Rfam assigns this 70-nucleotide RNA sequence from Acipenser ruthenus to the family "mir-29 microRNA precursor family".
It scores 70 bits against the family's covariance model.
From the family's description: This family represents the microRNA (miRNA) precursors mir-29.
Rfam 15.1 lists 3,328 matches to the family in 787 species.
RNA sequence: GGAGGCUGGUUUCAUAUGGUGGUUUAGAUGUAACUGUGCAGUGUCUAGCACCAUUUGAAAUCAGUGUUCU
Numbered sequence: 001g002g003a004g005g006c007u008g009g010u011u012u013c014a015u016a017u018g019g020u021g022g023u024u025u026a027g028a029u030g031u032a033a034c035u036g037u038g039c040a041g042u043g044u045c046u047a048g049c050a051c052c053a054u055u056u057g058a059a060a061u062c063a064g065u066g067u068u069c070u
Stems, first nucleotide, its partner, number of pairs: 001070004005065010016054006025047004